Rfam assigns this 76-nucleotide sequence from Triplophysa tibetana to the family "mir-1 microRNA precursor family". The literature on the family includes a 2001 paper in Cell by Ambros, "microRNAs: tiny regulators with great potential". The organism belongs to Triplophysa, within Eukaryota.

RNA sequence: UCUGACACCACACACUUCCUUACAUUCCAUAGAUUGAUUCUGUAUAUGGGGAUAUAAGGAAGUAUGUGAUCUCAAU
Numbered sequence: 001u002c003u004g005a006c007a008c009c010a011c012a013c014a015c016u017u018c019c020u021u022a023c024a025u026u027c028c029a030u031a032g033a034u035u036g037a038u039u040c041u042g043u044a045u046a047u048g049g050g051g052a053u054a055u056a057a058g059g060a061a062g063u064a065u066g067u068g069a070u071c072u073c074a075a076u
Stems, first nucleotide, its partner, number of pairs: 007070001009068004014063009024053002027049005
About the family: This family represents the microRNA (miRNA) mir-1 family. miRNAs are transcribed as ~70nt precursors (modelled here) and subsequently processed by the Dicer enzyme to give a ~22nt product. In this case the mature sequence comes from the 3' arm of the precursor. The extents of the hairpin precursors are not generally known and are estimated based on hairpin prediction. It scores 49 bits against the family's covariance model.